[Rfam]
RNA sequence: UGCCUAUGAUGACAAACCAAAGGCUUGUUUCUCAAAACAUUCGCAGUGGCCGCCUGAGAGCUUUCGCCUUGCCGGGCUUGAGAGCUUCUGCUGCUUACAAAUUUCCUUCCUUGGAUGUCUGAGGCU
Numbered sequence: 001u002g003c004c005u006a007u008g009a010u011g012a013c014a015a016a017c018c019a020a021a022g023g024c025u026u027g028u029u030u031c032u033c034a035a036a037a038c039a040u041u042c043g044c045a046g047u048g049g050c051c052g053c054c055u056g057a058g059a060g061c062u063u064u065c066g067c068c069u070u071g072c073c074g075g076g077c078u079u080g081a082g083a084g085c086u087u088c089u090g091c092u093g094c095u096u097a098c099a100a101a102u103u104u105c106c107u108u109c110c111u112u113g114g115a116u117g118u119c120u121g122a123g124g125c126u
Stems, first nucleotide, its partner, number of pairs: 002125003060085006